Small nucleolar RNA Z105: a 67-nucleotide RNA from Brachypodium distachyon. It scores 62 bits against the family's covariance model. Its family is annotated with RNA processing and nucleolus in the Gene Ontology. Pairs were carried over by alignment from the consensus structure, which was predicted with CMfinder. A reference for the family is Chen et al. (2003), "The high diversity of snoRNAs in plants: identification and comparative study of 120 snoRNA genes from Oryza sativa", Nucleic Acids Res. NCBI's taxonomy places the organism under Eukaryota, Liliopsida, Petrosaviidae, Poales, Brachypodium.
RNA sequence: UUGACAUAAUGAGGAAUACAAUUGUUGUCUGAUCUAUUUGAUGAUAAAAUCCUCCUACUCAUUCUGA
Numbered sequence: 001u002u003g004a005c006a007u008a009a010u011g012a013g014g015a016a017u018a019c020a021a022u023u024g025u026u027g028u029c030u031g032a033u034c035u036a037u038u039u040g041a042u043g044a045u046a047a048a049a050u051c052c053u054c055c056u057a058c059u060c061a062u063u064c065u066g067a
Base pairs, nucleotide, nucleotide: 006062007061009059025046029040